Rfam assigns this 173-nucleotide sequence from Thermoanaerobacterium sp. RBIITD to the family "Group II catalytic intron D1-D4-3". The pairing is the family consensus, mapped onto this sequence. The family has 406 seed sequences and 4,274 matches in Rfam 15.1. It scores 152 bits against the family's covariance model. Lineage of the source: Bacteria > Bacillati > Clostridia > Thermoanaerobacterales > Thermoanaerobacterium.
[Rfam]
RNA sequence: UCCAUCGUGAGGUGGAAUCUAAAAGAAGUCGGCGGCAAAGCUCUGGUCUGACGAACAGAAACUACAUAAAAGGCAUAUGCCUGUGGGUGAGUUUGCCACACAAAACAAAGCCCUAAGACUAUCCGAAACAGGUGGUGUAAAUGUAGCAGAUAUAUGGAGUGAAAGAUUACGCU
Numbered sequence: 001u002c003c004a005u006c007g008u009g010a011g012g013u014g015g016a017a018u019c020u021a022a023a024a025g026a027a028g029u030c031g032g033c034g035g036c037a038a039a040g041c042u043c044u045g046g047u048c049u050g051a052c053g054a055a056c057a058g059a060a061a062c063u064a065c066a067u068a069a070a071a072g073g074c075a076u077a078u079g080c081c082u083g084u085g086g087g088u089g090a091g092u093u094u095g096c097c098a099c100a101c102a103a104a105a106c107a108a109a110g111c112c113c114u115a116a117g118a119c120u121a122u123c124c125g126a127a128a129c130a131g132g133u134g135g136u137g138u139a140a141a142u143g144u145a146g147c148a149g150a151u152a153u154a155u156g157g158a159g160u161g162a163a164a165g166a167u168u169a170c171g172c173u
Stems, first nucleotide, its partner, number of pairs: 001016006028173001030171002036165001040160006046151005062146006073138003078134007085113004091106004